[Rfam]
RNA sequence: GCACCUGAAUCUUUCCCGCUCUUGGCUGCUCCGUGCUGGUGUGGGGACAGAUGGUGCCACAGGAAAGCAGAGGGAAUCCAGACGGGCUGUUUUUCAUGGUCUCGCGGCCUGUCUCUACAGCUCUGCCACACUU
Numbered sequence: 001g002c003a004c005c006u007g008a009a010u011c012u013u014u015c016c017c018g019c020u021c022u023u024g025g026c027u028g029c030u031c032c033g034u035g036c037u038g039g040u041g042u043g044g045g046g047a048c049a050g051a052u053g054g055u056g057c058c059a060c061a062g063g064a065a066a067g068c069a070g071a072g073g074g075a076a077u078c079c080a081g082a083c084g085g086g087c088u089g090u091u092u093u094u095c096a097u098g099g100u101c102u103c104g105c106g107g108c109c110u111g112u113c114u115c116u117a118c119a120g121c122u123c124u125g126c127c128a129c130a131c132u133u
Stems, first nucleotide, its partner, number of pairs: 001057005013047007021039002067126006080114008095104001